Small nucleolar RNA snoR136: a 136-nucleotide RNA from Helianthus annuus. The match comes from Rfam's covariance-model search (68 bits). Rfam 15.1 lists 452 matches to the family in 212 species. For this family Rfam cites "Mining small RNA sequencing data: a new approach to identify small nucleolar RNAs in Arabidopsis" (Chen and Wu, Nucleic Acids Res, 2009). Its family is annotated with RNA processing and nucleolus in the Gene Ontology. Rfam classes the family as an H/ACA-box small nucleolar RNA. The source organism's lineage runs through Eukaryota, Streptophytina, Embryophyta, Asteraceae and Helianthus.
RNA sequence: GUGGCUUCCUAAAAAUUUGAAUGACGAUUUGGUAAAACUGUUCCAAGGUUGUAUGGAUUGAAGCCUAGAAAAAAUGUUCCCCUCGCUAUCCGGUGCUGCUUUUGAUGUUGUGUUUGGACGUUGGGAAACUACAUUU
Numbered sequence: 001g002u003g004g005c006u007u008c009c010u011a012a013a014a015a016u017u018u019g020a021a022u023g024a025c026g027a028u029u030u031g032g033u034a035a036a037a038c039u040g041u042u043c044c045a046a047g048g049u050u051g052u053a054u055g056g057a058u059u060g061a062a063g064c065c066u067a068g069a070a071a072a073a074a075u076g077u078u079c080c081c082c083u084c085g086c087u088a089u090c091c092g093g094u095g096c097u098g099c100u101u102u103u104g105a106u107g108u109u110g111u112g113u114u115u116g117g118a119c120g121u122u123g124g125g126a127a128a129c130u131a132c133a134u135u136u
Base pairs, nucleotide, nucleotide: 002067003065004064005063008060012059013058016055024052025051026050027049028048029047030046031044032043076129077128078127080125081124082123084120085119089118090117091116092115093114098108099107
Dot-bracket structure: .((((..(...((..(.......(((((((((..........)).)))))))..)..)))..))).)........(((.(((.((...(((((....((.......)).....)))))))..))).))).......